This 247-nucleotide RNA from Streptomyces griseoviridis belongs to the Rfam family "Streptomyces sRNA 4677".
RNA sequence: UGCGCCGGUGCCGCGGGCGGUCUUUAAAAGGACCACUAAGGGAAAAGGAACCCCACCAAACCCCACCCCUCCCGCCCACGGAGCGUGCUCACUCUCCCGAGUGAACAUAGCCAACUCAGUUUGGUUUGCGCCCUAUUGCCUGCGCUACCUUCAGCGGCGUCAGCACGACGUCCGAACAUACGACGGCCCUCGCAGGGACUGGCAUCCCACGCGAGGGCCUACCCACCUAGGAACCUAGCCAUUCCCG
Numbered sequence: 001u002g003c004g005c006c007g008g009u010g011c012c013g014c015g016g017g018c019g020g021u022c023u024u025u026a027a028a029a030g031g032a033c034c035a036c037u038a039a040g041g042g043a044a045a046a047g048g049a050a051c052c053c054c055a056c057c058a059a060a061c062c063c064c065a066c067c068c069c070u071c072c073c074g075c076c077c078a079c080g081g082a083g084c085g086u087g088c089u090c091a092c093u094c095u096c097c098c099g100a101g102u103g104a105a106c107a108u109a110g111c112c113a114a115c116u117c118a119g120u121u122u123g124g125u126u127u128g129c130g131c132c133c134u135a136u137u138g139c140c141u142g143c144g145c146u147a148c149c150u151u152c153a154g155c156g157g158c159g160u161c162a163g164c165a166c167g168a169c170g171u172c173c174g175a176a177c178a179u180a181c182g183a184c185g186g187c188c189c190u191c192g193c194a195g196g197g198a199c200u201g202g203c204a205u206c207c208c209a210c211g212c213g214a215g216g217g218c219c220u221a222c223c224c225a226c227c228u229a230g231g232a233a234c235c236u237a238g239c240c241a242u243u244c245c246c247g
Stems, first nucleotide, its partner, number of pairs: 007227004016076004089104006119155003123151001185219005191213003195208004230245004

Description:
The pairing is the family consensus, mapped onto this sequence. A search with the family's covariance model found it, with a score of 176 bits. A reference for the family is Hindra et al. (2014), "Complex intra-operonic dynamics mediated by a small RNA in Streptomyces coelicolor", PLoS One. Located in the intergenic region between anti-sigma factor SCO4677 gene and a putative regulatory protein gene SCO4676. scr4677 expression requires the SCO4677 activity and scr4677 sRNA itself seem to affect the levels of the SCO4676-associated transcripts.